[Rfam]
RNA sequence: CAUUUAAAAGGUCCGUAGUCAGUGUUGACAGGGAUGCUAGAAGACACUUUCUUCAUGGAGUGUAUUGGCAUUCUAGGUUAGCAUGUAGGAGCGGAAGAGGGCGACUGUAUUGCGUAGCGAGAGGUGAAAGUUGACGACCUACGUAGGACAAACCGAAGCGAAAGCUGUCGUCCAGUACGUUUCCGGUGAUCAAGGACGUAAGCCGGAGGAGCAAAGGUGAUUAGAGACCCCUGUAGUUCCGGCCGUAAACUAUGCCAACUGGGUGUUACGUAGUGGUACCCACGAGAAAUCAAGUAUAUGGGCUAUGGGGAUAGUACGAUCGCAAGAUUGAAACUUGAAGAAAU
Numbered sequence: 001c002a003u004u005u006a007a008a009a010g011g012u013c014c015g016u017a018g019u020c021a022g023u024g025u026u027g028a029c030a031g032g033g034a035u036g037c038u039a040g041a042a043g044a045c046a047c048u049u050u051c052u053u054c055a056u057g058g059a060g061u062g063u064a065u066u067g068g069c070a071u072u073c074u075a076g077g078u079u080a081g082c083a084u085g086u087a088g089g090a091g092c093g094g095a096a097g098a099g100g101g102c103g104a105c106u107g108u109a110u111u112g113c114g115u116a117g118c119g120a121g122a123g124g125u126g127a128a129a130g131u132u133g134a135c136g137a138c139c140u141a142c143g144u145a146g147g148a149c150a151a152a153c154c155g156a157a158g159c160g161a162a163a164g165c166u167g168u169c170g171u172c173c174a175g176u177a178c179g180u181u182u183c184c185g186g187u188g189a190u191c192a193a194g195g196a197c198g199u200a201a202g203c204c205g206g207a208g209g210a211g212c213a214a215a216g217g218u219g220a221u222u223a224g225a226g227a228c229c230c231c232u233g234u235a236g237u238u239c240c241g242g243c244c245g246u247a248a249a250c251u252a253u254g255c256c257a258a259c260u261g262g263g264u265g266u267u268a269c270g271u272a273g274u275g276g277u278a279c280c281c282a283c284g285a286g287a288a289a290u291c292a293a294g295u296a297u298a299u300g301g302g303c304u305a306u307g308g309g310g311a312u313a314g315u316a317c318g319a320u321c322g323c324a325a326g327a328u329u330g331a332a333a334c335u336u337g338a339a340g341a342a343a344u
Stems, first nucleotide, its partner, number of pairs: 001307003011197004018190003088184003091180003095176001099173007106150002110146008121132002155166001158165002202243006211237002216232002219229001254303003258295002261281009284291002309336002318329004

The family of this 344-nucleotide part of an RNA from Octosporea bayeri is "Microsporidia small subunit ribosomal RNA".
Clan: SSU clan.
Rfam's curators put it in the seed alignment.
Its family is annotated with ribosome and structural constituent of ribosome in the Gene Ontology.